[Rfam]
RNA: FMN riboswitch aptamer (RFN element)
Organism: Lactobacillus pasteurii
RNA sequence: UGUUGUCUUCAGGGCAGGGUGAAAGUCCCGACCGGCGGUGAAAGUCCGCGACCCACGCGAGUGGCUGAAUUCUUUAAGAUACCGAUAGUUAUAGUCUAGAUGGAAGAAGACAGAC
Numbered sequence: 001u002g003u004u005g006u007c008u009u010c011a012g013g014g015c016a017g018g019g020u021g022a023a024a025g026u027c028c029c030g031a032c033c034g035g036c037g038g039u040g041a042a043a044g045u046c047c048g049c050g051a052c053c054c055a056c057g058c059g060a061g062u063g064g065c066u067g068a069a070u071u072c073u074u075u076a077a078g079a080u081a082c083c084g085a086u087a088g089u090u091a092u093a094g095u096c097u098a099g100a101u102g103g104a105a106g107a108a109g110a111c112a113g114a115c
Base pairs, nucleotide, nucleotide: 003113004112005111006110007109008108009107010106017029018028019027031095032094033084034083035049036048037047038046044082045081053064054063069080070079071078086098087097088096